[Rfam]
RNA sequence: GCUGCAAGUUUUGAGGCCAUAGAAGAAGCACUCACAGUAUAGCCCUGCUAGAUUCCAAUGAAUCUGCAAAUUCUGCU
Numbered sequence: 001g002c003u004g005c006a007a008g009u010u011u012u013g014a015g016g017c018c019a020u021a022g023a024a025g026a027a028g029c030a031c032u033c034a035c036a037g038u039a040u041a042g043c044c045c046u047g048c049u050a051g052a053u054u055c056c057a058a059u060g061a062a063u064c065u066g067c068a069a070a071u072u073c074u075g076c077u
Stems, first nucleotide, its partner, number of pairs: 013045001015044003021077002024074004028040001030038001049066007